The record is a 117-nucleotide RNA from Sporotomaculum syntrophicum, which matches "Molybdenum/Tungsten riboswitch aptamer (Moco RNA motif)" in Rfam. Gene Ontology terms of the family: molybdenum ion binding, tungstate binding and regulation of gene expression. For this family Rfam cites "Identification of 22 candidate structured RNAs in bacteria using the CMfinder comparative genomics pipeline" (Weinberg et al., Nucleic Acids Res, 2007). Pairs were carried over by alignment from the consensus structure, which is taken from published work.
[Rfam]
RNA sequence: UUAAUCAAAUCUCUGAGCCUGGUGACCUUAGCCAAGGGGUAUGGUUGCCCGGCCUUUUGGGUGCAUAGGGAAACUAGUGUGCCUCCCAUUGUGGAAAGGAGAAUUGAGCUUUAUUUG
Numbered sequence: 001u002u003a004a005u006c007a008a009a010u011c012u013c014u015g016a017g018c019c020u021g022g023u024g025a026c027c028u029u030a031g032c033c034a035a036g037g038g039g040u041a042u043g044g045u046u047g048c049c050c051g052g053c054c055u056u057u058u059g060g061g062u063g064c065a066u067a068g069g070g071a072a073a074c075u076a077g078u079g080u081g082c083c084u085c086c087c088a089u090u091g092u093g094g095a096a097a098g099g100a101g102a103a104u105u106g107a108g109c110u111u112u113a114u115u116u117g
Stems, first nucleotide, its partner, number of pairs: 003111002006108001010102005017053003021049007031040003059084008068075002085094002
Dot-bracket structure: ..((.(...(((((..(((.(((((((...(((....)))..))))))).))).....((((((((.((....)).))))))))((......))...))))).....).))......